[Rfam]
RNA sequence: GAGUAGAUGCACCCCGAUCAACUAGCCCUCGGAUUAAUCUGAGGGUUUUUUUU
Numbered sequence: 001g002a003g004u005a006g007a008u009g010c011a012c013c014c015c016g017a018u019c020a021a022c023u024a025g026c027c028c029u030c031g032g033a034u035u036a037a038u039c040u041g042a043g044g045g046u047u048u049u050u051u052u053u
Base pairs, nucleotide, nucleotide: 003012004011026045027044028043029042030041031040032039033038

The family of this 53-nucleotide RNA sequence from Lyngbya sp. PCC 8106 is "Nitrogen stress-induced RNA 1". A search with the family's covariance model found it, with a score of 42 bits. Rfam 15.1 lists 962 matches to the family in 163 species. A reference for the family is Ionescu et al. (2010), "Heterocyst-specific transcription of NsiR1, a non-coding RNA encoded in a tandem array of direct repeats in cyanobacteria", J Mol Biol. Pairs were carried over by alignment from the consensus structure.